[Rfam]
RNA sequence: UCUUAUAAUUUAGGGGUCAUUGUAGAAGCGUGCUCGUCGCGACCCCUGCCAGCACUUUUCAGGGCUGCAAUUCCUUCU
Numbered sequence: 001u002c003u004u005a006u007a008a009u010u011u012a013g014g015g016g017u018c019a020u021u022g023u024a025g026a027a028g029c030g031u032g033c034u035c036g037u038c039g040c041g042a043c044c045c046c047u048g049c050c051a052g053c054a055c056u057u058u059u060c061a062g063g064g065c066u067g068c069a070a071u072u073c074c075u076u077c078u
Base pairs, nucleotide, nucleotide: 013046014045015044016043017042018041022077024075025074027072028040029039030038050067051066052065053064055062056061
A member of the RNA family "Mammalian CPEB3 ribozyme" from Parnassius apollo, 78 nucleotides long. Its family is annotated with RNA nuclease activity in the Gene Ontology. It scores 54 bits against the family's covariance model. Pairs were carried over by alignment from the consensus structure, which is taken from published work.